[Rfam]
RNA sequence: CGUUCUGUAGGCCUGUGAAGGUGUCCUGUGAGGGAUGCUGGAGGUAUCAGAAGUGCGAAU
Numbered sequence: 001c002g003u004u005c006u007g008u009a010g011g012c013c014u015g016u017g018a019a020g021g022u023g024u025c026c027u028g029u030g031a032g033g034g035a036u037g038c039u040g041g042a043g044g045u046a047u048c049a050g051a052a053g054u055g056c057g058a059a060u
Stems, first nucleotide, its partner, number of pairs: 001055001003052005011045003020039008

Source information:
Shown here is a 60-nucleotide part of an RNA from Sulfuritortus calidifontis, a member of the family "Bacterial large subunit ribosomal RNA". Lineage of the source: Bacteria > Pseudomonadota > Betaproteobacteria > Nitrosomonadales > Sulfuritortus. Gene Ontology terms of the family: ribosome and structural constituent of ribosome. Its Rfam clan is "LSU clan".